A member of the RNA family "U7 small nuclear RNA" from Rattus norvegicus, 64 nucleotides long. Rfam's curators write: Animal histone pre-mRNAs are spliced by a different mechanism than nuclear pre-mRNAs and self-splicing introns. Taxonomically the source falls in Rattus (Eukaryota, Bilateria, Euteleostomi, Glires). A reference for the family is Spycher et al. (1994), "3' end processing of mouse histone pre-mRNA: evidence for additional base-pairing between U7 snRNA and pre-mRNA", Nucleic Acids Res. The base pairs follow the family's consensus structure, which was predicted with PFOLD.
RNA sequence: AAUUUUUCUUAGCUCUUUUGGAAUUAUUUCUAAUAGGAUUUCUGACCUUGGUUAGAAAUCCCAA
Numbered sequence: 001a002a003u004u005u006u007u008c009u010u011a012g013c014u015c016u017u018u019u020g021g022a023a024u025u026a027u028u029u030c031u032a033a034u035a036g037g038a039u040u041u042c043u044g045a046c047c048u049u050g051g052u053u054a055g056a057a058a059u060c061c062c063a064a
Base pairs, nucleotide, nucleotide: 036061037060038059039058040057041056042055043054044053045052046051